Rfam assigns this 80-nucleotide RNA sequence from Pararge aegeria to the family "mir-998 microRNA precursor family".
Its family is annotated with RISC complex and miRNA-mediated post-transcriptional gene silencing in the Gene Ontology.
The match comes from Rfam's covariance-model search (64 bits).
Taxonomically the source falls in Pararge aegeria (Eukaryota, Panarthropoda, Hexapoda, Insecta).
The family's consensus secondary structure was predicted with RNAalifold.
[Rfam]
RNA sequence: CGGGGGCGGCCCCGAGCUACAUCCCGUGGGGCUCCAGUGCCGCGUGUAGCACCAUGGGAUUCAGCUCAGGGCUGCUCACU
Number, nucleotide and partner (000 for none) at each position: 001c000002g000003g000004g077005g076006g075007c074008g000009g072010c000011c070012c069013c000014g067015a066016g000017c064018u063019a000020c000021a000022u059023c058024c057025c056026g055027u054028g053029g052030g000031g000032c049033u048034c000035c046036a045037g000038u000039g000040c000041c000042g000043c000044g000045u036046g035047u000048a033049g032050c000051a000052c029053c028054a027055u026056g025057g024058g023059a022060u000061u000062c000063a018064g017065c000066u015067c014068a000069g012070g011071g000072c009073u000074g007075c006076u005077c004078a000079c000080u000